[Rfam]
RNA sequence: AGAGGCCCUCUGCGGCCCGGGUGGAACGCUUGCCUCAUCGCUGCGGCAACAAAGCAAGCAUUCCACCAGGCCACUCACACUGCCCGU
Numbered sequence: 001a002g003a004g005g006c007c008c009u010c011u012g013c014g015g016c017c018c019g020g021g022u023g024g025a026a027c028g029c030u031u032g033c034c035u036c037a038u039c040g041c042u043g044c045g046g047c048a049a050c051a052a053a054g055c056a057a058g059c060a061u062u063c064c065a066c067c068a069g070g071c072c073a074c075u076c077a078c079a080c081u082g083c084c085c086g087u
Stems, first nucleotide, its partner, number of pairs: 004084003012074001014072004020067007028059006038049001040047002
A member of the RNA family "mir-9195 microRNA precursor family" from Myotis myotis, 87 nucleotides long.